[Rfam]
RNA sequence: UCAUGGAGGUGGCUGGGGUCAGCCCCAUGGAGGUGGCUGG
Number, nucleotide and partner (000 for none) at each position: 001u030002c029003a028004u027005g026006g025007a000008g000009g000010u000011g000012g000013c000014u000015g000016g000017g000018g000019u000020c000021a000022g000023c000024c000025c006026c005027a004028u003029g002030g001031a000032g000033g000034u000035g000036g000037c000038u000039g000040g000
The record is a 40-nucleotide RNA sequence, which matches "Prion pseudoknot" in Rfam. The family's consensus secondary structure is taken from published work. This family represents a predicted pseudoknot structure found in prion protein mRNA. It has been suggested that the family has a possible effect in prion protein translation. The family's RNA type in Rfam is cis-regulatory element. The literature on the family includes a 2001 paper in Nucleic Acids Res by Barrette et al., "Pseudoknots in prion protein mRNAs confirmed by comparative sequence analysis and pattern searching".